[Rfam]
Shown here is an 84-nucleotide sequence from Lactococcus lactis, a member of the family "ctRNA". Rfam links the family to the GO terms plasmid copy number maintenance and mRNA binding. A reference for the family is Duan et al. (1998), "Involvement of antisense RNA in replication control of the lactococcal plasmid pND324", FEMS Microbiol Lett. About the family: Rolling circle replication plasmids contain a number of mechanisms to maintain a low copy number. It is annotated as an antisense RNA. Lineage of the source: Bacteria > Bacillota > Bacilli > Lactococcus > Lactococcus lactis.
RNA sequence: UGAGAAGUUGCUCCUUAUGAGUAAUUUUGGUCUAGCAUAGAGAAGAAACUUUAGCGAGAUUUUCUCUAUGCUUUUAUUAUAUCA
Dot-bracket structure: ...((((((((((.....)))))))))).....((((((((((((...............))))))))))))............
Numbered sequence: 001u002g003a004g005a006a007g008u009u010g011c012u013c014c015u016u017a018u019g020a021g022u023a024a025u026u027u028u029g030g031u032c033u034a035g036c037a038u039a040g041a042g043a044a045g046a047a048a049c050u051u052u053a054g055c056g057a058g059a060u061u062u063u064c065u066c067u068a069u070g071c072u073u074u075u076a077u078u079a080u081a082u083c084a
Stems, first nucleotide, its partner, number of pairs: 004028010034072012